[Rfam]
RNA sequence: UGUUAAAACUUCCAUCCCUUUAUACUCUUAAAAACUAGCGUGGCUGACAAAAUAAUCAGACAAUGUGACAUGUGACGUGCCGCAUGCUGACGUACCUAAACCAGCUCUUAAUAGUAAAAAUGGAUGAAAUUUUUAAUA
Numbered sequence: 001u002g003u004u005a006a007a008a009c010u011u012c013c014a015u016c017c018c019u020u021u022a023u024a025c026u027c028u029u030a031a032a033a034a035c036u037a038g039c040g041u042g043g044c045u046g047a048c049a050a051a052a053u054a055a056u057c058a059g060a061c062a063a064u065g066u067g068a069c070a071u072g073u074g075a076c077g078u079g080c081c082g083c084a085u086g087c088u089g090a091c092g093u094a095c096c097u098a099a100a101c102c103a104g105c106u107c108u109u110a111a112u113a114g115u116a117a118a119a120a121u122g123g124a125u126g127a128a129a130u131u132u133u134u135a136a137u138a
Stems, first nucleotide, its partner, number of pairs: 002137007010129002013126004019120003023116004028111004033106001